[Rfam]
RNA sequence: AAAGCAGGCCUGCAAUUGCAGCACUCCAUGUUGGUAGAGUGCUGUCAUUAACCCUGCUGAGAGAAAGUCAGCUAUUGAGCUUGUGCUCCUCCUCACUGUGCUGGUGAUGAAGGACGCUCAGAGGCUGAACACC
Numbered sequence: 001a002a003a004g005c006a007g008g009c010c011u012g013c014a015a016u017u018g019c020a021g022c023a024c025u026c027c028a029u030g031u032u033g034g035u036a037g038a039g040u041g042c043u044g045u046c047a048u049u050a051a052c053c054c055u056g057c058u059g060a061g062a063g064a065a066a067g068u069c070a071g072c073u074a075u076u077g078a079g080c081u082u083g084u085g086c087u088c089c090u091c092c093u094c095a096c097u098g099u100g101c102u103g104g105u106g107a108u109g110a111a112g113g114a115c116g117c118u119c120a121g122a123g124g125c126u127g128a129a130c131a132c133c
Base pairs, nucleotide, nucleotide: 003058004057005056006055007054008053019044020043021042022041023040024039025038026037069127070126071125072124073123075121076120077119078118079117087110088109090107091106093104094103095102